[Rfam]
RNA sequence: UUGCCAUGACGACCACUUAGGACACCUUUGGAUUCUCCAUGAAAACAAACCGUUAACUUCUGAGCAGC
Numbered sequence: 001u002u003g004c005c006a007u008g009a010c011g012a013c014c015a016c017u018u019a020g021g022a023c024a025c026c027u028u029u030g031g032a033u034u035c036u037c038c039a040u041g042a043a044a045a046c047a048a049a050c051c052g053u054u055a056a057c058u059u060c061u062g063a064g065c066a067g068c
Base pairs, nucleotide, nucleotide: 001067002066003065004064
Dot-bracket structure: ((((...........................................................)))).
Rfam assigns this 68-nucleotide sequence from Cyprinodon variegatus to the family "Small nucleolar RNA SNORD58". Rfam's curators write: snoRNA U58 is found in introns 1, 3 and 6 of the ribosomal protein RPL17 gene in humans. A reference for the family is Galardi et al. (2002), "Purified box C/D snoRNPs are able to reproduce site-specific 2'-O-methylation of target RNA in vitro", Mol Cell Biol. The base pairs follow the family's consensus structure, which was predicted with PFOLD.